[Rfam]
RNA sequence: UUUUUAGCAUAAGUAUGUCCCAUGCGAUAUUGGGGACAUUCUUAUGUUAAAA
Numbered sequence: 001u002u003u004u005u006a007g008c009a010u011a012a013g014u015a016u017g018u019c020c021c022a023u024g025c026g027a028u029a030u031u032g033g034g035g036a037c038a039u040u041c042u043u044a045u046g047u048u049a050a051a052a
Base pairs, nucleotide, nucleotide: 006048007047008046009045010044011043012042015039016038018036019035020034021033022031
Dot-bracket structure: .....(((((((..((.(((((........).)))).))..)))))))....

This 52-nucleotide RNA from Cebus imitator belongs to the Rfam family "mir-1302 microRNA precursor family". The base pairs follow the family's consensus structure, which was predicted with WAR. The source organism's lineage runs through Eukaryota, Bilateria, Tetrapoda, Simiiformes and Cebus. Rfam 15.1 lists 16,160 matches to the family in 135 species. The literature on the family includes a 2008 paper in Genome Res by Morin et al., "Application of massively parallel sequencing to microRNA profiling and discovery in human embryonic stem cells". Its family is annotated with RISC complex and miRNA-mediated post-transcriptional gene silencing in the Gene Ontology.